[Rfam]
RNA: Small nucleolar RNA SNORD10
RNA sequence: UGUAUAAUGAUGAAACCCAUGCGUGUCAGCUGACUCUAUUUCCUCCUGCUGUGCUGUGGCUCAGGUUGGCGUUUUGCUGGCCUAAGCCCUCGGCACAGCAGAGAUUCAGAGACAUGAUCAUACUUCACUUCUGAAUACA
Dot-bracket structure: ((((.......................................(.(((((((..........................................))))))).)................................))))